[Rfam]
RNA: Alphaproteobacterial ar14
Organism: Phyllobacterium sp. YR620
RNA sequence: GAAUAUCGCCGGGGCUUAUCCUCCUCCCGAAGCCCCCGCGAUCAAAGGCCGAUACUCCUCCUCCCUGAUCGGCCUUUAUCAAACGACACCCACCGCACCUCCUCCCGCGGUGGGUGUUGUUA
Numbered sequence: 001g002a003a004u005a006u007c008g009c010c011g012g013g014g015c016u017u018a019u020c021c022u023c024c025u026c027c028c029g030a031a032g033c034c035c036c037c038g039c040g041a042u043c044a045a046a047g048g049c050c051g052a053u054a055c056u057c058c059u060c061c062u063c064c065c066u067g068a069u070c071g072g073c074c075u076u077u078a079u080c081a082a083a084c085g086a087c088a089c090c091c092a093c094c095g096c097a098c099c100u101c102c103u104c105c106c107g108c109g110g111u112g113g114g115u116g117u118u119g120u121u122a
Base pairs, nucleotide, nucleotide: 007040008039009038011036012035013034014033015032016031017030044077045076046075047074048073049072050071051070052069053068086117087116088115089114090113091112092111093110094109095108096107